[Rfam]
RNA sequence: GCCGGGUUGGCCGAGCGGUUUAAGGCGUCAAAGUUAACAACCCAGAUCUCCGAGAGGAGGCGUAGGUUCGAAUCCUACACCCGGCA
Number, nucleotide and partner (000 for none) at each position: 001g085002c084003c083004g082005g081006g080007u079008u000009g000010g026011c025012c024013g000014a000015g000016c000017g000018g000019u000020u000021u000022a000023a000024g012025g011026c010027g000028u057029c056030a000031a000032a000033g000034u000035u000036a000037a000038c000039a000040a000041c000042c000043c000044a000045g000046a000047u000048c000049u000050c000051c000052g000053a000054g000055a000056g029057g028058a000059g000060g000061c000062g078063u077064a076065g075066g074067u000068u000069c000070g000071a000072a000073u000074c066075c065076u064077a063078c062079a007080c006081c005082c004083g003084g002085c001086a000
RNA: tRNA